The family of this 85-nucleotide RNA from Archaeoglobus veneficus is "tRNA". Rfam classes the family as a transfer RNA. Transfer RNA (tRNA) molecules are approximately 80 nucleotides in length. Their secondary structure includes four short double-helical elements and three loops (D, anti-codon, and T loops). Further hydrogen bonds mediate the characteristic L-shaped molecular structure. tRNAs have two regions of fundamental functional importance: the anti-codon, which is responsible for specific mRNA codon recognition, and the 3' end, to which the tRNAs corresponding amino acid is attached (by aminoacyl-tRNA synthetases). tRNAs cope with the degeneracy of the genetic code in two manners: having more than one tRNA (with a specific anti-codon) for a particular amino acid; and 'wobble' base-pairing, i.e. permitting non-standard base-pairing at the 3rd anti-codon position.
RNA sequence: GCGGGGGUUGCCGAGCCAGGCCAAAGGCGGUGGACUCAAGAUCCACUCCCGAAGGGGUCCGAGGGUUCAAAUCCCUCCCCCCGCA
Dot-bracket structure: (((((((..(((.............))).(((((.......)))))..............(((((.......)))))))))))).